[Rfam]
Rfam assigns this 79-nucleotide sequence from Cupriavidus yeoncheonensis to the family "Cupriavidus-1 RNA".
Pairs were carried over by alignment from the consensus structure, which is taken from published work.
By type it is a small RNA.
NCBI's taxonomy places the organism under Bacteria, Pseudomonadati, Pseudomonadota, Burkholderiales, Cupriavidus.
RNA sequence: CUUGCAUGGCGGUGACCGGCCACGAUGGCCGCAGGCAAUGCAAGACGCGUACCGGCUGCCCGCCAAUGCGAGGGUGCCG
Number, nucleotide and partner (000 for none) at each position: 001c044002u043003u042004g041005c040006a039007u037008g000009g036010c035011g016012g000013u000014g000015a000016c011017c031018g030019g029020c028021c027022a000023c000024g000025a000026u000027g021028g020029c019030c018031g017032c000033a000034g000035g010036c009037a007038a000039u006040g005041c004042a003043a002044g001045a000046c000047g000048c000049g000050u000051a000052c000053c079054g078055g077056c076057u000058g000059c073060c072061c070062g069063c068064c000065a000066a000067u000068g063069c062070g061071a000072g060073g059074g000075u000076g056077c055078c054079g053